[Rfam]
RNA sequence: GCCGGUGUAGCUCAGUGGUAGAGCAUCCCGCUCGUAACGGGAGGGUCGUGGGUUCAAUUCCCACCACCGGCU
Numbered sequence: 001g002c003c004g005g006u007g008u009a010g011c012u013c014a015g016u017g018g019u020a021g022a023g024c025a026u027c028c029c030g031c032u033c034g035u036a037a038c039g040g041g042a043g044g045g046u047c048g049u050g051g052g053u054u055c056a057a058u059u060c061c062c063a064c065c066a067c068c069g070g071c072u
Base pairs, nucleotide, nucleotide: 001071002070003069004068005067006066007065010024011023012022013021026042027041028040029039030038048064049063050062051061052060

Description: A member of the RNA family "tRNA" from bacterium HR35, 72 nucleotides long. The match comes from Rfam's covariance-model search (75 bits). By type it is a transfer RNA.